Source information: Gammaprotebacteria rimP leader: a 101-nucleotide sequence from Sodalis sp. Fse. A reference for the family is Naville and Gautheret (2010), "Premature terminator analysis sheds light on a hidden world of bacterial transcriptional attenuation", Genome Biol. Gene Ontology term of the family: regulation of gene expression. The source organism's lineage runs through Bacteria, Pseudomonadati, Pseudomonadota, Gammaproteobacteria and Sodalis.

[Rfam]
RNA sequence: AAAUAGCUUAUAGUCUACAGGGUAUAUUAAUUAACGCCCCGAUUUUCGGGGUUUUUCUUAUUUAAUAACAAUAUUAUUACGGGCUCAUAAGCCCUUUUUUU
Numbered sequence: 001a002a003a004u005a006g007c008u009u010a011u012a013g014u015c016u017a018c019a020g021g022g023u024a025u026a027u028u029a030a031u032u033a034a035c036g037c038c039c040c041g042a043u044u045u046u047c048g049g050g051g052u053u054u055u056u057c058u059u060a061u062u063u064a065a066u067a068a069c070a071a072u073a074u075u076a077u078u079a080c081g082g083g084c085u086c087a088u089a090a091g092c093c094c095u096u097u098u099u100u101u
Stems, first nucleotide, its partner, number of pairs: 033054002036052006081094004